[Rfam]
RNA: Potassium channel RNA editing signal
Organism: Larimichthys crocea
RNA sequence: CUGGGCUAUGGCGACAUGUAUCCACAGACGUGGCUGGGCAUGAUGGUAGGAGCGCUGUGCGCGUUGGCCGGGGUGUUGACCAUCGCCAUGCCGGUCCCUGUCAUCGUCAAUAAC
Dot-bracket structure: .(.(...((((.((((.(.((...............((((.........(...........)...........))))................)).).)))).))))...).).